[Rfam]
RNA sequence: UGGUGAAGCCUUACUUACCAGUAUCAAUGUAGGCACUCGGUCAUGCUGUGGGUUGAAAGACCUUAGACGCGCUCGUUGUCGAUAGUAUGAUGUGAGGAUGGGUUAGAUGCCCA
Numbered sequence: 001u002g003g004u005g006a007a008g009c010c011u012u013a014c015u016u017a018c019c020a021g022u023a024u025c026a027a028u029g030u031a032g033g034c035a036c037u038c039g040g041u042c043a044u045g046c047u048g049u050g051g052g053u054u055g056a057a058a059g060a061c062c063u064u065a066g067a068c069g070c071g072c073u074c075g076u077u078g079u080c081g082a083u084a085g086u087a088u089g090a091u092g093u094g095a096g097g098a099u100g101g102g103u104u105a106g107a108u109g110c111c112c113a
Base pairs, nucleotide, nucleotide: 001020002019003018004017008034009033010032011031013030014029036096037095038094039093040091041090042089043088044087045086046085047084050063051062052061053060054059066080067079068078069077099113100112101111102110103109
This 113-nucleotide sequence from Oceanobacillus piezotolerans belongs to the Rfam family "epsC RNA".
It scores 90 bits against the family's covariance model.
Rfam classes the family as a cis-regulatory element.